[Rfam]
RNA sequence: GCCGCGCCUAGGCUGAUUCCCGAAAACCCGUCCCCCGGCGGGCUGGCGCGGCGACCAUUUCCGGGG
Numbered sequence: 001g002c003c004g005c006g007c008c009u010a011g012g013c014u015g016a017u018u019c020c021c022g023a024a025a026a027c028c029c030g031u032c033c034c035c036c037g038g039c040g041g042g043c044u045g046g047c048g049c050g051g052c053g054a055c056c057a058u059u060u061c062c063g064g065g066g
Stems, first nucleotide, its partner, number of pairs: 001052008011021002027042004033066006

Background: int-alpA RNA: a 66-nucleotide RNA sequence from Inhella proteolytica. The family's consensus secondary structure is taken from published work. About the family: Acidobacteria (1 example), Planctomycetes (1 example), Proteobacteria. It is annotated as a small RNA.